Rfam assigns this 110-nucleotide sequence from Clostridium sulfidigenes to the family "SAM riboswitch aptamer (S box leader)".
RNA sequence: AUCUUAUCAAGAGAGGCAGAGGGACUGGCCCUAUGAAGCCCGGCAACCAAAGGUAGUUAUUUUAAACUUUAUGGUGCUAAAUCCAGCAGGAUUAACCUGGAAGAUAAGAA
Numbered sequence: 001a002u003c004u005u006a007u008c009a010a011g012a013g014a015g016g017c018a019g020a021g022g023g024a025c026u027g028g029c030c031c032u033a034u035g036a037a038g039c040c041c042g043g044c045a046a047c048c049a050a051a052g053g054u055a056g057u058u059a060u061u062u063u064a065a066a067c068u069u070u071a072u073g074g075u076g077c078u079a080a081a082u083c084c085a086g087c088a089g090g091a092u093u094a095a096c097c098u099g100g101a102a103g104a105u106a107a108g109a110a
Base pairs, nucleotide, nucleotide: 002109003108004107005106006105007104008103013041015040016039017038021031022030023029025086026085027084028083042078043077044076045075047074048073049070050069051068052067082102087099088098089097090096